[Rfam]
RNA: ctRNA
RNA sequence: AGAGAAGUUGCUCCUUAUGAGUAAUUUUGGUUAAGCAUGAAUAAAGUCAGGCCAAAGAUUUUUUCUUCAUGCUUUUAUUAUAUAA
Numbered sequence: 001a002g003a004g005a006a007g008u009u010g011c012u013c014c015u016u017a018u019g020a021g022u023a024a025u026u027u028u029g030g031u032u033a034a035g036c037a038u039g040a041a042u043a044a045a046g047u048c049a050g051g052c053c054a055a056a057g058a059u060u061u062u063u064u065c066u067u068c069a070u071g072c073u074u075u076u077a078u079u080a081u082a083u084a085a
Base pairs, nucleotide, nucleotide: 004028005027006026007025008024009023010022011021012020013019033074034073035072036071037070038069039068040067041066043064044063045062